[Rfam]
A member of the RNA family "Bacterial large subunit ribosomal RNA" from Dictyoglomus thermophilum, 588 nucleotides of a longer RNA.
RNA sequence: CCCGUGGCAGGACGGAAAGACCCCGUGAAGCUUUACUGUAGCCUGGCAUUGAACUCUGGCACUGCAUGUAGAGGAUAGGUGGGAGGCUGAGAAGCGGGGGCGCCAGCCUCCGUGGAGCCGCCGGUGGAAUACCACCCUUGUGGUGUUGGGGUUCUAACCCCAAAAGAAGAGCCUUUUGGGGGACAGUGCUUGGUGGGCAGUUUGACUGGGGCGGUCGCCUCCUAAAAGGUAACGGAGGCGCCCAAAGGUAGGCUUGGCACGGUUAGAAAUCGUGCCUGAAGUGUAAGGGCGUUAAGCCUGCCUGACUGUGAGGCCGACGGGCCGAGCAGAGACGAAAGUCGGGCCUAGUGAUCCGGUGGUCCCGAGUGGAAGGGCCAUCGCUCAACGGAUAAAAGUUACUCCGGGGAUAACAGGCUGAUCUCGCCCGAGAGUCCACAUCGACGGCGAGGUUUGGCACCUCGAUGUCGGCUCACCGCAUCCUGGGGCUGGAGAAGGUCCCAAGGGUUGGGCUGUUCGCCCAUUAAAGCGGUACGUGAGCUGGGUUCAGAACGUCGUGAGACAGUUCGGUCCCUAUCCGCCACGGGCGGA
Numbered sequence: 001c002c003c004g005u006g007g008c009a010g011g012a013c014g015g016a017a018a019g020a021c022c023c024c025g026u027g028a029a030g031c032u033u034u035a036c037u038g039u040a041g042c043c044u045g046g047c048a049u050u051g052a053a054c055u056c057u058g059g060c061a062c063u064g065c066a067u068g069u070a071g072a073g074g075a076u077a078g079g080u081g082g083g084a085g086g087c088u089g090a091g092a093a094g095c096g097g098g099g100g101c102g103c104c105a106g107c108c109u110c111c112g113u114g115g116a117g118c119c120g121c122c123g124g125u126g127g128a129a130u131a132c133c134a135c136c137c138u139u140g141u142g143g144u145g146u147u148g149g150g151g152u153u154c155u156a157a158c159c160c161c162a163a164a165a166g167a168a169g170a171g172c173c174u175u176u177u178g179g180g181g182g183a184c185a186g187u188g189c190u191u192g193g194u195g196g197g198c199a200g201u202u203u204g205a206c207u208g209g210g211g212c213g214g215u216c217g218c219c220u221c222c223u224a225a226a227a228g229g230u231a232a233c234g235g236a237g238g239c240g241c242c243c244a245a246a247g248g249u250a251g252g253c254u255u256g257g258c259a260c261g262g263u264u265a266g267a268a269a270u271c272g273u274g275c276c277u278g279a280a281g282u283g284u285a286a287g288g289g290c291g292u293u294a295a296g297c298c299u300g301c302c303u304g305a306c307u308g309u310g311a312g313g314c315c316g317a318c319g320g321g322c323c324g325a326g327c328a329g330a331g332a333c334g335a336a337a338g339u340c341g342g343g344c345c346u347a348g349u350g351a352u353c354c355g356g357u358g359g360u361c362c363c364g365a366g367u368g369g370a371a372g373g374g375c376c377a378u379c380g381c382u383c384a385a386c387g388g389a390u391a392a393a394a395g396u397u398a399c400u401c402c403g404g405g406g407a408u409a410a411c412a413g414g415c416u417g418a419u420c421u422c423g424c425c426c427g428a429g430a431g432u433c434c435a436c437a438u439c440g441a442c443g444g445c446g447a448g449g450u451u452u453g454g455c456a457c458c459u460c461g462a463u464g465u466c467g468g469c470u471c472a473c474c475g476c477a478u479c480c481u482g483g484g485g486c487u488g489g490a491g492a493a494g495g496u497c498c499c500a501a502g503g504g505u506u507g508g509g510c511u512g513u514u515c516g517c518c519c520a521u522u523a524a525a526g527c528g529g530u531a532c533g534u535g536a537g538c539u540g541g542g543u544u545c546a547g548a549a550c551g552u553c554g555u556g557a558g559a560c561a562g563u564u565c566g567g568u569c570c571c572u573a574u575c576c577g578c579c580a581c582g583g584g585c586g587g588a
Stems, first nucleotide, its partner, number of pairs: 001584008010576003014571002022405004027401002029397005035201004042193002045190004051154016068137001078136005085119003094113008158181009204216004217239006240386001242343002248301006254280002257275006281290002306329004312323003331340003354380007362373002414455003418452001419449007429439002466541001467539004471533001472530005479504002482499006506520005547565004551560003